[Rfam]
RNA: Purine riboswitch aptamer
Organism: Bacillus mesophilum
RNA sequence: UACAAUUAAAAAUGAAUCAUUCAUAUAAUAGCAGGGAUAUGGCCUGCGAGUUUCUACCGAAUCACCGUAAAGGAUUCGACUAUGAGUGAGCAGAAAAUAAGA
Number, nucleotide and partner (000 for none) at each position: 001u000002a000003c000004a000005a000006u000007u000008a000009a000010a000011a000012a000013u000014g000015a000016a000017u000018c088019a087020u086021u085022c084023a083024u082025a081026u000027a000028a000029u049030a000031g047032c046033a045034g044035g043036g000037a000038u000039a000040u000041g000042g000043c035044c034045u033046g032047c031048g000049a029050g000051u000052u000053u000054c000055u000056a000057c000058c078059g077060a076061a075062u074063c073064a000065c000066c000067g000068u000069a000070a000071a000072g000073g063074a062075u061076u060077c059078g058079a000080c000081u025082a024083u023084g022085a021086g020087u019088g018089a000090g000091c000092a000093g000094a000095a000096a000097a000098u000099a000100a000101g000102a000